The record is a 96-nucleotide RNA sequence from Acholeplasma brassicae, which matches "SAM riboswitch aptamer (S box leader)" in Rfam. Taxonomically the source falls in Acholeplasma (Bacteria, Bacillati, Mollicutes, Acholeplasmataceae). It scores 53 bits against the family's covariance model. The base pairs follow the family's consensus structure, which is taken from published work.
RNA sequence: AUCUUAUUCAGAGCUACGGAGGCUAGUGACCAACGAUGUAGCAGCAACCUGCCAUGCAAGGUGCUAACGACAAGGGACAAUGUCCAUCAAUGAGAA
Dot-bracket structure: .(((((((....(((((...((.......))......)))))((((.(((((...))).))))))...(....((.((...))))..)))))))).